Notes: mir-971 microRNA precursor family: a 74-nucleotide sequence from Phaedon cochleariae. The family's consensus secondary structure was predicted with RNAalifold.

RNA sequence: UUGUUGGGUCACUCUAAGUUUGAACACCAAGCUUUUUUAUUCGUUUGGUGUUCUACCUUACAGUGAGCAAACUC
Numbered sequence: 001u002u003g004u005u006g007g008g009u010c011a012c013u014c015u016a017a018g019u020u021u022g023a024a025c026a027c028c029a030a031g032c033u034u035u036u037u038u039a040u041u042c043g044u045u046u047g048g049u050g051u052u053c054u055a056c057c058u059u060a061c062a063g064u065g066a067g068c069a070a071a072c073u074c
Stems, first nucleotide, its partner, number of pairs: 007068001009066005015060003025050008